The family of this 158-nucleotide sequence from Brevibacillus brevis is "c-di-AMP riboswitch aptamer (ydaO/yuaA leader)". NCBI's taxonomy places the organism under Bacteria, Bacilli, Caryophanales, Brevibacillus, Brevibacillus brevis.

RNA sequence: AAACGAAAUAAGCCGAGACUUCCUCUUUGAAAAGGAAGUGCGGGGGACUUUUUUGUGGAUGAGCUAUUCCACAUUGGGGUGAAUCGCCGAACUGGCGUAGGGUUGUUUCCUCAAUCCGAAUCCGACAACUAACCUCGUAGGCAAAAAAAAGGAGAGAU
Number, nucleotide and partner (000 for none) at each position: 001a000002a000003a000004c000005g000006a000007a000008a000009u000010a000011a000012g142013c141014c140015g000016a000017g000018a039019c038020u037021u036022c035023c034024u033025c000026u000027u000028u000029g000030a000031a000032a000033a024034g023035g022036a021037a020038g019039u018040g138041c137042g136043g135044g134045g133046g000047a000048c000049u000050u076051u000052u000053u000054u000055g000056u000057g000058g000059a000060u000061g000062a000063g000064c000065u000066a000067u000068u000069c000070c000071a000072c000073a000074u000075u000076g050077g123078g122079g121080u000081g000082a000083a000084u000085c097086g096087c095088c094089g000090a000091a000092c000093u000094g088095g087096c086097g085098u000099a000100g117101g116102g115103u114104u000105g000106u000107u000108u000109c000110c000111u000112c000113a000114a103115u102116c101117c100118g000119a000120a000121u079122c078123c077124g000125a000126c000127a000128a000129c000130u000131a000132a000133c045134c044135u043136c042137g041138u040139a000140g014141g013142c012143a000144a000145a000146a000147a000148a000149a000150a000151g000152g000153a000154g000155a000156g000157a000158u000